[Rfam]
RNA sequence: UGGGUGGCCAACAAGCGCGGGUCUGGCGGAGCGCGGUGGCGCUCGGAGACCGCGAGGCGACCGGGGGCGGCUGGGUCCCCGGCGGCGCGGCCCCCAGCCGGGCCGGGAGCCGCGCCAGUCGGUGCCCCCGGCCGAGCGCGGUCCGCCUCGCUCCCAGCGAACAUCCAUCCGGAGUGCGGCCCGCGGACAUGCCAGAACCACCAGGGGCGCCGCCGCCGGCGCUCGAAGGCCGCGGAUGAAAAAAGUGCGGCCUCGCUCGGCCCGGAGCGAAGAGGUGCCCCGGAACGAAGAGGUGAACCGAAGUGAAGAGGUGGCCCAGAGCGAAGAAGAGGCCCGGAGCGAAGAGGCGACCCGGAGCGAAGAGGUG
Number, nucleotide and partner (000 for none) at each position: 001u000002g000003g000004g000005u000006g000007g000008c000009c000010a000011a000012c000013a000014a000015g000016c000017g000018c000019g000020g104021g103022u102023c101024u100025g099026g098027c097028g000029g000030a000031g000032c000033g000034c000035g000036g000037u000038g093039g092040c000041g000042c089043u000044c052045g051046g050047a000048g000049a000050c046051c045052g044053c000054g000055a000056g000057g000058c000059g000060a000061c082062c081063g080064g079065g078066g077067g076068c075069g000070g000071c000072u000073g000074g000075g068076u067077c066078c065079c064080c063081g062082g061083c000084g000085g000086c000087g000088c000089g042090g000091c000092c039093c038094c000095c000096a000097g027098c026099c025100g024101g023102g022103c021104c020105g000106g000107g000108a000109g000110c000111c000112g000113c000114g000115c000116c000117a000118g000119u000120c000121g000122g000123u000124g000125c000126c000127c000128c000129c000130g000131g000132c000133c000134g000135a000136g000137c000138g000139c000140g000141g000142u000143c000144c349145g348146c347147c346148u345149c344150g000151c000152u000153c000154c000155c000156a000157g000158c000159g000160a000161a000162c000163a000164u000165c000166c000167a000168u187169c186170c185171g184172g000173a000174g000175u000176g000177c000178g000179g000180c000181c000182c000183g000184c171185g170186g169187a168188c000189a000190u000191g000192c000193c000194a000195g000196a000197a000198c000199c000200a000201c000202c000203a000204g000205g224206g223207g222208c221209g220210c219211c218212g217213c000214c000215g000216c000217c212218g211219g210220c209221g208222c207223u206224c205225g000226a000227a000228g000229g000230c000231c000232g000233c000234g000235g000236a000237u000238g000239a000240a000241a000242a000243a000244a000245g000246u000247g000248c000249g000250g000251c000252c000253u000254c269255g268256c267257u266258c265259g000260g000261c000262c000263c000264g000265g258266a257267g256268c255269g254270a000271a000272g000273a000274g000275g000276u000277g000278c000279c000280c000281c000282g000283g000284a000285a000286c000287g000288a000289a000290g000291a000292g000293g000294u000295g000296a000297a000298c000299c000300g000301a000302a000303g000304u000305g000306a000307a000308g000309a000310g000311g000312u000313g000314g000315c000316c000317c000318a000319g000320a000321g000322c000323g000324a000325a000326g000327a000328a000329g000330a000331g000332g000333c000334c000335c000336g000337g000338a000339g000340c000341g000342a000343a000344g149345a148346g147347g146348c145349g144350a000351c000352c000353c000354g000355g000356a000357g000358c000359g000360a000361a000362g000363a000364g000365g000366u000367g000
RNA: Bag-1 internal ribosome entry site (IRES)